[Rfam]
RNA: Archaeal large subunit ribosomal RNA, nucleotides 1802 to 2170
Organism: Acidianus hospitalis
RNA sequence: GGGGGCUAACCCAGGCUAGGGAACUCGGCAAAUUGGCCCCGUACCUUCGGAAGAAGGGGUGCCUACCACAGUAGUAAUCCUGCUGUGGUAGGUUGCAGUGACCAGGGGGGCCUGACUGUUUAAUAAAAACAUAGGUCCCCGCUAGCCCGUAAGGGUGUGAACGGGGGCUGAAUCCUGGCCACUGGCGGUCGGUGAAACCCGGGUACAACCGGGCGAAGCCCCGCUGAAGGCCGGGGGUAACUCUGACCCUCUCAAGGUAGCCAAAUGCCUUGCCGGGCAAGUUCCGGCGUGCAUGAAUGGAUCAACUGGGCCCCCACUGUCCCAGCCUGGGGCCCCGUGAACGCCCAGAGUGGGUUCACAGUCCCGCAA
Number, nucleotide and partner (000 for none) at each position: 001g336002g335003g334004g333005g000006c000007u000008a000009a000010c331011c330012c329013a328014g327015g326016c325017u324018a000019g322020g321021g320022a000023a000024c000025u000026c000027g000028g000029c000030a000031a000032a000033u000034u000035g000036g060037c059038c058039c057040c056041g000042u000043a000044c000045c050046u000047u000048c000049g000050g045051a000052a000053g000054a000055a000056g040057g039058g038059g037060u036061g093062c092063c091064u090065a089066c088067c087068a086069c085070a084071g083072u082073a081074g080075u000076a000077a000078u000079c000080c074081u073082g072083c071084u070085g069086u068087g067088g066089u065090a064091g063092g062093u061094u098095g000096c000097a000098g094099u000100g000101a000102c000103c000104a000105g000106g315107g314108g313109g312110g311111c310112c309113u000114g306115a000116c000117u131118g130119u129120u000121u000122a000123a000124u000125a000126a000127a000128a000129a119130c118131a117132u000133a000134g169135g168136u167137c166138c165139c164140c163141g162142c159143u000144a000145g156146c155147c154148c153149g000150u000151a000152a000153g148154g147155g146156u145157g000158u000159g142160a000161a000162c141163g140164g139165g138166g137167g136168c135169u134170g000171a000172a302173u301174c300175c299176u000177g232178g231179c230180c000181a000182c229183u228184g225185g224186c223187g222188g221189u000190c000191g220192g219193u218194g000195a000196a000197a000198c213199c212200c211201g210202g209203g000204u000205a000206c000207a000208a000209c202210c201211g200212g199213g198214c000215g000216a000217a000218g193219c192220c191221c188222c187223g186224c185225u184226g000227a000228a183229g182230g179231c178232c177233g251234g250235g249236g248237g247238u246239a000240a000241c000242u000243c000244u000245g000246a238247c237248c236249c235250u234251c233252u256253c000254a000255a000256g252257g000258u000259a000260g000261c000262c000263a000264a000265a000266u000267g000268c000269c000270u000271u000272g288273c287274c286275g285276g284277g283278c000279a000280a000281g000282u000283u277284c276285c275286g274287g273288c272289g000290u000291g000292c000293a000294u000295g000296a000297a000298u000299g175300g174301a173302u172303c000304a000305a000306c114307u000308g000309g112310g111311c110312c109313c108314c107315c106316a000317c000318u000319g000320u021321c020322c019323c000324a017325g016326c015327c014328u013329g012330g011331g010332g000333c004334c003335c002336c001337g000338u000339g000340a000341a000342c000343g000344c000345c000346c000347a000348g000349a000350g367351u366352g365353g364354g363355u000356u000357c000358a000359c000360a000361g000362u000363c354364c353365c352366g351367c350368a000369a000